[Rfam]
RNA sequence: AUAUUUUUUGGCACACAUCAAUGUCCACGUUUUUGUGACUUGAUUCGCUGAAAUGUUCCAUAAGUGUGCUAGAACAACC
Numbered sequence: 001a002u003a004u005u006u007u008u009u010g011g012c013a014c015a016c017a018u019c020a021a022u023g024u025c026c027a028c029g030u031u032u033u034u035g036u037g038a039c040u041u042g043a044u045u046c047g048c049u050g051a052a053a054u055g056u057u058c059c060a061u062a063a064g065u066g067u068g069c070u071a072g073a074a075c076a077a078c079c
Stems, first nucleotide, its partner, number of pairs: 005077002009071008021061003027056007035048004
The family of this 79-nucleotide sequence from Tribolium castaneum is "mir-3804 microRNA precursor family". Its family is annotated with RISC complex and miRNA-mediated post-transcriptional gene silencing in the Gene Ontology. The source organism's lineage runs through Eukaryota, Eumetazoa, Bilateria, Allotriocarida and Tribolium.